[Rfam]
RNA sequence: AAUAUCUGUUGGCAAAGCAGACGAAAGCCUGUGACGCAAAGCUAGAGGGCCUGUAAAAUGGUAGCCAGUUGCAUGA
Numbered sequence: 001a002a003u004a005u006c007u008g009u010u011g012g013c014a015a016a017g018c019a020g021a022c023g024a025a026a027g028c029c030u031g032u033g034a035c036g037c038a039a040a041g042c043u044a045g046a047g048g049g050c051c052u053g054u055a056a057a058a059u060g061g062u063a064g065c066c067a068g069u070u071g072c073a074u075g076a
Stems, first nucleotide, its partner, number of pairs: 012037002017032004022027001040070004047066002049062003
Rfam assigns this 76-nucleotide RNA from Clostridium sp. CAG:81 to the family "c-di-GMP-I riboswitch aptamer". The organism belongs to Clostridium, within Bacteria. Rfam links the family to the GO term cyclic-di-GMP binding.